[Rfam]
RNA: c-di-AMP riboswitch aptamer (ydaO/yuaA leader)
RNA sequence: ACCCAUGGACAGGGGCGGGGGAACCACCGGGGCGCACGCCCCUGGGGUGAAGCCACCACAGGUGGCCGGGCACCUCUCGCCCGAACCCGUCAGCUAACCCCGCA
Dot-bracket structure: .(((.......)))((((((....((................))(((.....((((.....))))..((((.......))))...))).........)))))).